[Rfam]
RNA sequence: AUAAGUGGAACAUCAGCUAAAAGCGCCACAUCCUGUGGCAACGCCGAUGAACUAACCUCCAGUGAG
Dot-bracket structure: ..........((((.((.......(((((.....)))))...)).))))..((.((.....)).))
RNA: Bacillaceae-1 RNA
Organism: Bacillus sp. J14TS2